Shown here is a 56-nucleotide RNA sequence from Pantoea alhagi, a member of the family "ClpQY promoter". The match comes from Rfam's covariance-model search (54 bits).
RNA sequence: CUUCGCGCCGCACAGCGCGAAGCUCUUUUUCCACUGUAACAAGGGGUCUGCCCGUG
Numbered sequence: 001c002u003u004c005g006c007g008c009c010g011c012a013c014a015g016c017g018c019g020a021a022g023c024u025c026u027u028u029u030u031c032c033a034c035u036g037u038a039a040c041a042a043g044g045g046g047u048c049u050g051c052c053c054g055u056g
Stems, first nucleotide, its partner, number of pairs: 001022008